[Rfam]
RNA sequence: GAGCGGUUGUAAAAAACAACGUUCUUUAAACGUUGGCUCUGCCAAUGGUUUCGUGAGAGGUGAACAAACGAAUGCCCGGGUUUGUGAAAAAUUUUUAC
Numbered sequence: 001g002a003g004c005g006g007u008u009g010u011a012a013a014a015a016a017c018a019a020c021g022u023u024c025u026u027u028a029a030a031c032g033u034u035g036g037c038u039c040u041g042c043c044a045a046u047g048g049u050u051u052c053g054u055g056a057g058a059g060g061u062g063a064a065c066a067a068a069c070g071a072a073u074g075c076c077c078g079g080g081u082u083u084g085u086g087a088a089a090a091a092u093u094u095u096u097a098c
Stems, first nucleotide, its partner, number of pairs: 010028004015023003031047007048061005064085006088095002
Shown here is a 98-nucleotide RNA from Rodentibacter trehalosifermentans, a member of the family "Aggregatibacter sRNA 22". A search with the family's covariance model found it, with a score of 55 bits. The source organism's lineage runs through Bacteria, Pseudomonadati, Pseudomonadota, Gammaproteobacteria and Rodentibacter. The family's RNA type in Rfam is small RNA.